[Rfam]
RNA sequence: UUCAUAAUUAUAGCGCCCGAACUAAGCAGACGGACAAGAGCUUAGUUGACGAGGAUGGAGGUUUAUCGAAGUAUUCGGCGGAUGCCUCCCGGCUGAUUUCAGAUCACAGCCGAAAAGAAUUUCUUUAAACCAAAGAGGCGACUCUUUGAACAAAGGGAAAUUGCAUGAUCUGA
Numbered sequence: 001u002u003c004a005u006a007a008u009u010a011u012a013g014c015g016c017c018c019g020a021a022c023u024a025a026g027c028a029g030a031c032g033g034a035c036a037a038g039a040g041c042u043u044a045g046u047u048g049a050c051g052a053g054g055a056u057g058g059a060g061g062u063u064u065a066u067c068g069a070a071g072u073a074u075u076c077g078g079c080g081g082a083u084g085c086c087u088c089c090c091g092g093c094u095g096a097u098u099u100c101a102g103a104u105c106a107c108a109g110c111c112g113a114a115a116a117g118a119a120u121u122u123c124u125u126u127a128a129a130c131c132a133a134a135g136a137g138g139c140g141a142c143u144c145u146u147u148g149a150a151c152a153a154a155g156g157g158a159a160a161u162u163g164c165a166u167g168a169u170c171u172g173a
Stems, first nucleotide, its partner, number of pairs: 020047008057089005066078004090112006118162006131148007